[Rfam]
Rfam assigns this 378-nucleotide RNA from Pedobacter metabolipauper to the family "Bacterial RNase P class A".
Its family is annotated with dimeric ribonuclease P complex, tRNA processing and ribonuclease P activity in the Gene Ontology.
The organism belongs to Pedobacter, within Bacteria.
Ribonuclease P (RNase P) is a ubiquitous endoribonuclease, found in archaea, bacteria and eukarya as well as chloroplasts and mitochondria.
RNA sequence: AAUGCAAGCCGUUCUAUCGCUGCGAUUUAAUCGGAGAGGAAAGUCCGGGCAACACAGAGCAUCCCGCUUCCUAACGGGAAGAGGCCUGGGAAUGAAUGCCCAGGUUAUGGAAAGUGCCGCAGAAAGCAUACCGCCGAUGGCUUUUAAGCACAGGUAAGGUUGAAAACGUGAGGUAAGAGCUCACGAUUUUUCCGGGCGACCGGAGAACUGGUAAACCCCGGGAGUUGAAAGACCAAAUAGGCUAACGCAUGUAGGGCUGCUCGUUCGAUGUUAGUGGGUAGGUCGUUAGAGAUAAAUGGCAACAUUUAUACUGGAUUAAUGAUAGAAGAUGUUGAUUUAUUAACAUUACAGAACCCGGCUUACAGGCUUGCAUUUUUU
Numbered sequence: 001a002a003u004g005c006a007a008g009c010c011g012u013u014c015u016a017u018c019g020c021u022g023c024g025a026u027u028u029a030a031u032c033g034g035a036g037a038g039g040a041a042a043g044u045c046c047g048g049g050c051a052a053c054a055c056a057g058a059g060c061a062u063c064c065c066g067c068u069u070c071c072u073a074a075c076g077g078g079a080a081g082a083g084g085c086c087u088g089g090g091a092a093u094g095a096a097u098g099c100c101c102a103g104g105u106u107a108u109g110g111a112a113a114g115u116g117c118c119g120c121a122g123a124a125a126g127c128a129u130a131c132c133g134c135c136g137a138u139g140g141c142u143u144u145u146a147a148g149c150a151c152a153g154g155u156a157a158g159g160u161u162g163a164a165a166a167c168g169u170g171a172g173g174u175a176a177g178a179g180c181u182c183a184c185g186a187u188u189u190u191u192c193c194g195g196g197c198g199a200c201c202g203g204a205g206a207a208c209u210g211g212u213a214a215a216c217c218c219c220g221g222g223a224g225u226u227g228a229a230a231g232a233c234c235a236a237a238u239a240g241g242c243u244a245a246c247g248c249a250u251g252u253a254g255g256g257c258u259g260c261u262c263g264u265u266c267g268a269u270g271u272u273a274g275u276g277g278g279u280a281g282g283u284c285g286u287u288a289g290a291g292a293u294a295a296a297u298g299g300c301a302a303c304a305u306u307u308a309u310a311c312u313g314g315a316u317u318a319a320u321g322a323u324a325g326a327a328g329a330u331g332u333u334g335a336u337u338u339a340u341u342a343a344c345a346u347u348a349c350a351g352a353a354c355c356c357g358g359c360u361u362a363c364a365g366g367c368u369u370g371c372a373u374u375u376u377u378u
Base pairs, nucleotide, nucleotide: 001374002373003372004371005370006369007368008367009366010365011363012327013326014325015324016323017322018321020036021035023033024032025031026030041361042360043359045358046357047356048355049354050227051226052225053224057262058261059260060259062223063222064221065220066219067081068080069079070078071077082108083106084105085104086103087102088101089100090099109218110217114216115215116212117211118210131159132158133155134154135153138150140149141148142147167185168184169183170182171181172180188207189206190205191204192203193202194201195200231284232283233282234281241275242274243273244272245271246270254266255265256264257263292309293308294307295306296305297304298303